A member of the RNA family "Lysine riboswitch aptamer" from Butyrivibrio sp. CB08, 172 nucleotides long. NCBI's taxonomy places the organism under Bacteria, Bacillota, Clostridia, Lachnospirales, Butyrivibrio. It scores 101 bits against the family's covariance model. Pairs were carried over by alignment from the consensus structure, which is taken from published work.
Nucleotides: 172
Stems, first nucleotide, its partner, number of pairs: 007166005017082009034066006086115003091110002094107004116142002119139008144157005
Number, partner (000 for none) and nucleotide at each position: 001000g002000a003000a004000u005000u006000a007166g008165a009164u010163a011162g012000a013000g014000g015000u016000u017082g018081c019080a020079u021078a022077u023076u024075u025074a026000a027000a028000g029000a030000g031000u032000a033000a034066c035065u036064u037063u038062g039061u040000g041000g042000a043000u044000g045000c046000a047000c048000a049000g050000c051000a052000g053000c054000a055000g056000u057000a058000g059000a060000a061039a062038c063037a064036a065035a066034g067000c068000g069000a070000a071000a072000g073000g074025u075024g076023a077022a078021u079020g080019u081018g082017c083000c084000g085000a086115a087114a088113g089000g090000c091110c092109u093000g094107g095106c096105c097104u098000g099000g100000c101000u102000g103000a104097a105096g106095g107094c108000g109092g110091g111000u112000g113088c114087u115086u116142g117141g118000g119139c120138a121137u122136g123135c124134a125133g126132u127000a128000a129000a130000u131000a132126g133125c134124u135123g136122c137121a138120u139119g140000a141117c142116u143000g144157u145156c146155a147154u148153c149000g150000c151000a152000a153148g154147a155146u156145g157144g158000g159000g160000a161000g162011c163010u164009a165008u166007c167000a168000a169000a170000g171000a172000u